[Rfam]
RNA sequence: AUGGGGUUCGAAUGCGCUGGUCGAAACCGGUUUGCCCUAGCGUGGGAAACGCCCCAAAGAUCC
Number, nucleotide and partner (000 for none) at each position: 001a000002u056003g055004g054005g053006g052007u051008u000009c000010g000011a000012a000013u000014g043015c042016g041017c040018u039019g037020g036021u000022c034023g033024a032025a000026a000027c000028c000029g000030g000031u000032u024033u023034g022035c000036c020037c019038u000039a018040g017041c016042g015043u014044g000045g000046g000047a000048a000049a000050c000051g007052c006053c005054c004055c003056a002057a000058a000059g000060a000061u000062c000063c000
Trypanosomatid snoRNA TB8Cs3H1: a 63-nucleotide sequence from Leishmania infantum. The family's RNA type in Rfam is H/ACA-box small nucleolar RNA. Rfam's curators put it in the seed alignment. The source organism's lineage runs through Eukaryota, Euglenozoa, Kinetoplastea, Leishmaniinae and Leishmania infantum. Rfam 15.1 lists 38 matches to the family in 17 species. The family's consensus secondary structure was predicted with WAR. For this family Rfam cites "A genome-wide analysis of C/D and H/ACA-like small nucleolar RNAs in Trypanosoma brucei reveals a trypanosome-specific pattern of rRNA modification" (Liang et al., RNA, 2005).